The family of this 728-nucleotide RNA sequence from Suillus discolor is "Nuclear RNase P".
RNA sequence: CCAGCUCGAAGGCCACGAAUGCUCAUCACGUACAGGUUGCUUCAUGCAUCCACAUUUCUGAGCGGGCUAAGGUCUGAGUAUUUUAAUCCCCCCCUCGAUCGGCUCUAGCAGAGCCCGGCUGUAAUCAGCUGCGCGACGUACCAGAAAAGCAGCUUCAUUUUCACAUCCCCAAGAUCCUGUCACGGCAGAGGAGGGCGAGAAUGAGAGGCUUUGAAAGCGUUGCGGGGAUCGGGCAAACUUGUGUCCAUCGUGUAGCAGUCCUAUCGCGCGUGCGCCUGUCACAAUGGCGCUCAGGGACGUAGAGAAAUCUGACCGUGAUACUCGAAGUCUCCGGGCCUUUGCUGCGGUACAUUCCUUGCAUCUAAAUCACUAGAUGUCAUGUACAUUCGUUGCCCUCAGGAAUCAACCUGAGUUUUGGUGGUACAUCUCUUACAUCUAAAUCACUAGGUGUCAUGUACAUUCGUCGCCCUCAGGAAUCACCCUGGGUUUUGGUGGUACAUGCAGACUGCAGUCGAGGUAUCCUCCCACGGUGCCUACCCUACCAAUGAGCGUCUCCGCUCAGCUUCGUGAAUAUCCGCUUGCGGCUGGAGGUGACUACAUUACCAUGUCGUUACUCUCCUUGCGUAUGAGGGAUAUAUGCGAUGACACUCGUUUGUCCUUGAGUUCACUUCGUGGCUCGCGUAUCCUUCGUGGAUCGUGAAACUCGAUUCAGACUACUCUUGGGCUGG
Number, nucleotide and partner (000 for none) at each position: 001c728002c727003a726004g725005c000006u000007c722008g721009a720010a000011g000012g676013c675014c674015a673016c672017g671018a670019a000020u064021g063022c062023u061024c060025a000026u000027c000028a000029c000030g000031u000032a000033c000034a000035g051036g050037u000038u048039g047040c046041u000042u000043c000044a000045u000046g040047c039048a038049u000050c036051c035052a000053c000054a000055u000056u000057u000058c000059u000060g024061a023062g022063c021064g020065g000066g000067c000068u000069a000070a000071g000072g000073u000074c712075u711076g710077a709078g708079u000080a000081u000082u000083u000084u000085a000086a000087u000088c000089c000090c000091c227092c226093c225094c224095u000096c000097g000098a000099u000100c000101g115102g114103c113104u112105c111106u000107a000108g000109c000110a000111g105112a104113g103114c102115c101116c131117g130118g129119c128120u127121g126122u000123a000124a000125u000126c121127a120128g119129c118130u117131g116132c000133g223134c222135g221136a220137c219138g218139u217140a000141c000142c000143a000144g000145a000146a000147a000148a000149g000150c000151a000152g209153c208154u207155u206156c205157a000158u000159u000160u000161u000162c000163a000164c000165a000166u000167c000168c000169c000170c000171a000172a000173g000174a000175u000176c000177c000178u000179g000180u000181c000182a000183c000184g000185g000186c000187a000188g000189a000190g000191g000192a000193g000194g000195g000196c000197g000198a000199g000200a000201a000202u000203g000204a000205g156206a155207g154208g153209c152210u000211u000212u000213g000214a000215a000216a000217g139218c138219g137220u136221u135222g134223c133224g094225g093226g092227g091228a000229u000230c000231g000232g000233g000234c000235a000236a000237a000238c000239u000240u000241g000242u000243g000244u000245c000246c000247a000248u000249c000250g000251u000252g000253u000254a000255g000256c000257a000258g000259u000260c000261c000262u000263a000264u000265c000266g000267c000268g000269c000270g000271u000272g000273c000274g000275c000276c000277u000278g000279u000280c000281a000282c000283a000284a000285u000286g000287g000288c000289g000290c000291u000292c000293a000294g000295g000296g000297a000298c000299g000300u000301a000302g000303a000304g000305a000306a000307a000308u000309c000310u000311g000312a000313c000314c000315g000316u000317g000318a000319u000320a000321c000322u000323c000324g000325a000326a000327g000328u000329c000330u000331c000332c000333g000334g000335g000336c000337c000338u000339u000340u000341g000342c000343u000344g000345c000346g000347g000348u000349a000350c000351a000352u000353u000354c000355c000356u000357u000358g000359c000360a000361u000362c000363u000364a000365a000366a000367u000368c000369a000370c000371u000372a000373g000374a000375u000376g000377u000378c000379a000380u000381g000382u000383a000384c000385a000386u000387u000388c000389g000390u000391u000392g000393c000394c000395c000396u000397c000398a000399g000400g000401a000402a000403u000404c000405a000406a000407c000408c000409u000410g000411a000412g000413u000414u000415u000416u000417g000418g000419u000420g000421g000422u000423a000424c000425a000426u000427c000428u000429c000430u000431u000432a000433c000434a000435u000436c000437u000438a000439a000440a000441u000442c000443a000444c000445u000446a000447g000448g000449u000450g000451u000452c000453a000454u000455g000456u000457a000458c000459a000460u000461u000462c000463g000464u000465c000466g000467c000468c000469c000470u000471c000472a000473g000474g000475a000476a000477u000478c000479a000480c000481c000482c000483u000484g000485g000486g000487u000488u000489u000490u000491g000492g000493u000494g000495g000496u000497a000498c000499a000500u000501g000502c000503a000504g000505a000506c000507u000508g000509c000510a000511g000512u000513c000514g000515a000516g000517g000518u000519a000520u000521c000522c000523u000524c000525c000526c000527a000528c000529g000530g000531u000532g000533c000534c000535u000536a000537c000538c000539c000540u000541a000542c000543c000544a000545a000546u000547g000548a000549g000550c000551g000552u000553c000554u000555c000556c000557g000558c000559u000560c000561a000562g000563c000564u000565u000566c000567g000568u000569g000570a000571a000572u000573a000574u000575c000576c000577g000578c000579u000580u000581g000582c000583g000584g000585c000586u000587g000588g000589a000590g000591g000592u000593g000594a000595c000596u000597a000598c000599a000600u000601u000602a000603c000604c000605a000606u000607g000608u000609c000610g000611u000612u000613a000614c000615u000616c000617u000618c000619c000620u000621u000622g000623c000624g000625u000626a000627u000628g000629a000630g000631g000632g000633a000634u000635a000636u000637a000638u000639g000640c000641g000642a000643u000644g000645a000646c000647a000648c000649u000650c000651g000652u000653u000654u000655g000656u000657c000658c000659u000660u000661g000662a000663g000664u000665u000666c000667a000668c000669u000670u018671c017672g016673u015674g014675g013676c012677u700678c699679g698680c697681g696682u000683a000684u000685c000686c000687u000688u000689c000690g000691u000692g000693g000694a000695u000696c681697g680698u679699g678700a677701a000702a000703c000704u000705c000706g000707a000708u078709u077710c076711a075712g074713a000714c000715u000716a000717c000718u000719c000720u009721u008722g007723g000724g000725c004726u003727g002728g001

NCBI's taxonomy places the organism under Eukaryota, Opisthokonta, Agaricomycetes, Suillaceae, Suillus. The family's RNA type in Rfam is ribozyme. Ribonuclease P (RNase P) is a ubiquitous endoribonuclease, found in archaea, bacteria and eukarya as well as chloroplasts and mitochondria. Its best characterised activity is the generation of mature 5'-ends of tRNAs by cleaving the 5'-leader elements of precursor-tRNAs. Cellular RNase Ps are ribonucleoproteins. RNA from bacterial RNase Ps retains its catalytic activity in the absence of the protein subunit, i.e. it is a ribozyme. Isolated eukaryotic and archaeal RNase P RNA has not been shown to retain its catalytic function, but is still essential for the catalytic activity of the holoenzyme. Although the archaeal and eukaryotic holoenzyme s have a much greater protein content than the bacterial ones, the RNA cores from all the three lineages are homologous -- helices corresponding to P1, P2, P3, P4, and P10/11 are common to all cellular RNase P RNAs. Yet, there is considerable sequence variation, particularly among the eukaryotic RNAs.